Rfam assigns this 177-nucleotide sequence from Filibacter tadaridae to the family "Lysine riboswitch aptamer". The match comes from Rfam's covariance-model search (122 bits).
[Rfam]
RNA sequence: AGUGAAGAUAGAGGUGCGGGCACGAUGAGUAUACUCUUUGAGGGUGGCUACCCGAUGAUAAGGAUAGAAAGGCGUCUCUGCCGAAGUGAAUCGACUGUUGCCACAUUCGAUUUGCUGGAUUUCCAUUGAACAAGUGGGAGUUUGUCAGGUGAAAUUACCUGGAGAGCUAUCUGAUUG
Number, nucleotide and partner (000 for none) at each position: 001a000002g000003u000004g000005a000006a172007g171008a170009u169010a168011g167012a000013g000014g000015u000016g081017c080018g079019g078020g077021c000022a075023c074024g073025a000026u000027g000028a000029g000030u000031a000032u066033a065034c000035u063036c062037u061038u060039u000040g000041a000042g000043g000044g000045u000046g000047g000048c000049u000050a000051c000052c000053c000054g000055a000056u000057g000058a000059u000060a038061a037062g036063g035064a000065u033066a032067g000068a000069a000070a000071g000072g000073c024074g023075u022076c000077u020078c019079u018080g017081c016082c000083g000084a000085a116086g115087u114088g113089a112090a111091u110092c109093g108094a107095c000096u105097g000098u000099u000100g000101c000102c000103a000104c000105a096106u000107u094108c093109g092110a091111u090112u089113u088114g087115c086116u085117g143118g142119a141120u140121u139122u138123c137124c136125a135126u134127u133128g000129a000130a000131c000132a000133a127134g126135u125136g124137g123138g122139a121140g120141u119142u118143u117144g000145u162146c161147a160148g159149g158150u157151g156152a000153a000154a000155u000156u151157a150158c149159c148160u147161g146162g145163a000164g000165a000166g000167c011168u010169a009170u008171c007172u006173g000174a000175u000176u000177g000